[Rfam]
RNA sequence: GCUACAUGAUACUUAUGUUUUUCAGAAGUGAGUGCUUUGUGCAGUUCUGACCUUUACCUAUCAUCCUUGACUAAUGGCU
Numbered sequence: 001g002c003u004a005c006a007u008g009a010u011a012c013u014u015a016u017g018u019u020u021u022u023c024a025g026a027a028g029u030g031a032g033u034g035c036u037u038u039g040u041g042c043a044g045u046u047c048u049g050a051c052c053u054u055u056a057c058c059u060a061u062c063a064u065c066c067u068u069g070a071c072u073a074a075u076g077g078c079u
Base pairs, nucleotide, nucleotide: 001078002077003076004075032042033041034040035039
The family of this 79-nucleotide RNA from Jaculus jaculus is "Small nucleolar RNA SNORD83". Its family is annotated with nucleolus and RNA processing in the Gene Ontology. Rfam 15.1 lists 1,393 matches to the family in 644 species. The literature on the family includes a 2000 paper in Nucleic Acids Res by Jady and Kiss, "Characterisation of the U83 and U84 small nucleolar RNAs: two novel 2'-O-ribose methylation guide RNAs that lack complementarities to ribosomal RNAs".